Small nucleolar RNA Z122: an 86-nucleotide sequence from Ricinus communis. On this family, see Chen et al., Nucleic Acids Res 2003: "The high diversity of snoRNAs in plants: identification and comparative study of 120 snoRNA genes from Oryza sativa". The family's RNA type in Rfam is C/D-box small nucleolar RNA. NCBI's taxonomy places the organism under Eukaryota, Embryophyta, Magnoliopsida, Mesangiospermae, Ricinus. The family's consensus secondary structure was predicted with PFOLD. It scores 65 bits against the family's covariance model.
[Rfam]
RNA sequence: GUUGGGAAAUGAUGAGAGGUUACCUCAAAUUAUCUGAGGCACUAGCUCUGCUGAAUGUCUAAUUUGCACGUCAGUCUGAUCCCAUG
Numbered sequence: 001g002u003u004g005g006g007a008a009a010u011g012a013u014g015a016g017a018g019g020u021u022a023c024c025u026c027a028a029a030u031u032a033u034c035u036g037a038g039g040c041a042c043u044a045g046c047u048c049u050g051c052u053g054a055a056u057g058u059c060u061a062a063u064u065u066g067c068a069c070g071u072c073a074g075u076c077u078g079a080u081c082c083c084a085u086g
Base pairs, nucleotide, nucleotide: 003084004083005082006081007080